[Rfam]
RNA sequence: GGUUCGGGUGCUGGCCGGUGGGACGGUUGGCGGGAAUGGAACCUUAUCCCCUUCAUUCGGCGGCGUGUUCCGUGGCCCCGACGGAACAAG
Numbered sequence: 001g002g003u004u005c006g007g008g009u010g011c012u013g014g015c016c017g018g019u020g021g022g023a024c025g026g027u028u029g030g031c032g033g034g035a036a037u038g039g040a041a042c043c044u045u046a047u048c049c050c051c052u053u054c055a056u057u058c059g060g061c062g063g064c065g066u067g068u069u070c071c072g073u074g075g076c077c078c079c080g081a082c083g084g085a086a087c088a089a090g
Stems, first nucleotide, its partner, number of pairs: 001043005010031008064090001066088007
About this RNA:
The family of this 90-nucleotide RNA sequence from Frigidibacter albus is "Rhodo-rpoB RNA". The family's consensus secondary structure is taken from published work. The organism belongs to Frigidibacter, within Bacteria.